Shown here is a 60-nucleotide RNA from Moschus moschiferus, a member of the family "U7 small nuclear RNA". The match comes from Rfam's covariance-model search (61 bits). From the family's description: Animal histone pre-mRNAs are spliced by a different mechanism than nuclear pre-mRNAs and self-splicing introns. This processing involves the U7 snRNP, which contains only one RNA species: U7. The 5' end of U7 RNA is thought to base-pair to a conserved spacer element downstream of the cleavage site in histone pre-mRNA. This family contains a number of annotated U7 pseudogenes.

[Rfam]
Nucleotides: 060
Base pairs, nucleotide, nucleotide: 034057035056036055037054038053039052040051043048
Number, partner (000 for none) and nucleotide at each position: 001000g002000a003000g004000u005000g006000u007000u008000a009000c010000a011000g012000c013000u014000c015000u016000u017000u018000u019000g020000g021000a022000a023000u024000u025000u026000g027000u028000c029000u030000a031000g032000c033000a034057g035056g036055u037054u038053u039052u040051c041000c042000a043048g044000c045000u046000u047000a048043c049000c050000a051040g052039a053038a054037a055036g056035c057034c058000a059000a060000a